[Rfam]
RNA sequence: CUUGUCCAUGUAAACAUCCUACACUCAGCUGUGAGCAGAUGCAGCAGAGGCUGAGAGAAGGUUGUUUACUUGAACCGG
Numbered sequence: 001c002u003u004g005u006c007c008a009u010g011u012a013a014a015c016a017u018c019c020u021a022c023a024c025u026c027a028g029c030u031g032u033g034a035g036c037a038g039a040u041g042c043a044g045c046a047g048a049g050g051c052u053g054a055g056a057g058a059a060g061g062u063u064g065u066u067u068a069c070u071u072g073a074a075c076c077g078g
Base pairs, nucleotide, nucleotide: 002077004075005074008071010069011068012067013066014065015064016063018061019060020059022057024055025054026053027052028051029050030049
Dot-bracket structure: .(.((..(.(((((((.(((.(.(((((((..................))))))).).))).))))))).)..)).).